SAH (S-adenosyl-L-homocysteine) riboswitch aptamer: an 87-nucleotide RNA sequence from a Solemya velum gill symbiont. The match comes from Rfam's covariance-model search (62 bits). NCBI's taxonomy places the organism under Bacteria, Pseudomonadati, Pseudomonadota, Gammaproteobacteria, sulfur-oxidizing symbionts. Its family is annotated with S-adenosylhomocysteine metabolic process and regulation of gene expression in the Gene Ontology.

RNA sequence: CAACCUGAGGAGCGUUGCGACAGAUCACCAACGGUGCAUCUGCCAGGCUCAGGUUGACGGCACAAAUAGCAACGGCGCUCAGUGUGA
Number, nucleotide and partner (000 for none) at each position: 001c000002a055003a054004c053005c052006u051007g050008a049009g000010g000011a000012g000013c000014g000015u000016u000017g000018c000019g000020a000021c042022a041023g040024a039025u038026c000027a000028c000029c000030a000031a000032c000033g000034g000035u000036g000037c000038a025039u024040c023041u022042g021043c000044c000045a000046g000047g000048c000049u008050c007051a006052g005053g004054u003055u002056g000057a000058c000059g000060g000061c000062a000063c000064a000065a000066a000067u000068a000069g000070c000071a000072a000073c000074g000075g000076c000077g000078c000079u000080c000081a000082g000083u000084g000085u000086g000087a000